[Rfam]
RNA: Small nucleolar RNA SNORA26
Organism: Pteropus vampyrus
RNA sequence: GUGCCCUUUUAAGGUUGACACAGCACCCUAAGAGGCUAACACAGGAGGGUAAAGUAAGUCUCCAUAAAACCCAGAGAAGAGAUUAUAAAAGUCCUCUUUGUAUCUUGUCUGGAGUCACAGCU
Numbered sequence: 001g002u003g004c005c006c007u008u009u010u011a012a013g014g015u016u017g018a019c020a021c022a023g024c025a026c027c028c029u030a031a032g033a034g035g036c037u038a039a040c041a042c043a044g045g046a047g048g049g050u051a052a053a054g055u056a057a058g059u060c061u062c063c064a065u066a067a068a069a070c071c072c073a074g075a076g077a078a079g080a081g082a083u084u085a086u087a088a089a090a091g092u093c094c095u096c097u098u099u100g101u102a103u104c105u106u107g108u109c110u111g112g113a114g115u116c117a118c119a120g121c122u
Stems, first nucleotide, its partner, number of pairs: 002051009014040004019035001021032001058116001060114005072100006079093002083090002